[Rfam]
RNA sequence: GGUGGAUCCCGCGCGGCGCGCAUCCUGUGAACUCCCCCAGGGCCGGAAGGCAGCAAGGGUCAAUGGGCUCUGCCGGGUGCGCGGGGUCCCCUUAU
Numbered sequence: 001g002g003u004g005g006a007u008c009c010c011g012c013g014c015g016g017c018g019c020g021c022a023u024c025c026u027g028u029g030a031a032c033u034c035c036c037c038c039a040g041g042g043c044c045g046g047a048a049g050g051c052a053g054c055a056a057g058g059g060u061c062a063a064u065g066g067g068c069u070c071u072g073c074c075g076g077g078u079g080c081g082c083g084g085g086g087u088c089c090c091c092u093u094a095u
Stems, first nucleotide, its partner, number of pairs: 004089010014077001017075002020073003024067005034059003042051003
The record is a 95-nucleotide RNA from Rhodococcus spelaei, which matches "Bacterial small signal recognition particle RNA" in Rfam. A search with the family's covariance model found it, with a score of 63 bits. NCBI's taxonomy places the organism under Bacteria, Actinomycetota, Actinomycetes, Mycobacteriales, Rhodococcus. A reference for the family is Regalia et al. (2002), "Prediction of signal recognition particle RNA genes", Nucleic Acids Res. The family's RNA type in Rfam is non-coding RNA gene. From the family's description: The signal recognition particle (SRP) is a universally conserved ribonucleoprotein involved in the co-translational targeting of proteins to membranes.